[Rfam]
RNA sequence: UAACCAUCUUGAGCGGCUGAGAGACCUGGCUCCGUGACGCCGCAGCAACCCCCUCCUUCGAGGACGGUGCUACCGCCAGGACCGAUGGAGA
Numbered sequence: 001u002a003a004c005c006a007u008c009u010u011g012a013g014c015g016g017c018u019g020a021g022a023g024a025c026c027u028g029g030c031u032c033c034g035u036g037a038c039g040c041c042g043c044a045g046c047a048a049c050c051c052c053c054u055c056c057u058u059c060g061a062g063g064a065c066g067g068u069g070c071u072a073c074c075g076c077c078a079g080g081a082c083c084g085a086u087g088g089a090g091a
Stems, first nucleotide, its partner, number of pairs: 001091001004088005013043005021032003026079004044071004049067002052063004075083001
RNA: SAM riboswitch aptamer (S box leader)